[Rfam]
RNA: S15-Flavobacteria ribosomal protein leader
RNA sequence: UAUAUUUGCCGACCGUUAGCUAUUAGGGUUAACAAUACAUAAAAAUUAUUAAUAAAAUUAAUGUUAGCAUG
Numbered sequence: 001u002a003u004a005u006u007u008g009c010c011g012a013c014c015g016u017u018a019g020c021u022a023u024u025a026g027g028g029u030u031a032a033c034a035a036u037a038c039a040u041a042a043a044a045a046u047u048a049u050u051a052a053u054a055a056a057a058u059u060a061a062u063g064u065u066a067g068c069a070u071g
Base pairs, nucleotide, nucleotide: 015033016032017031018030019029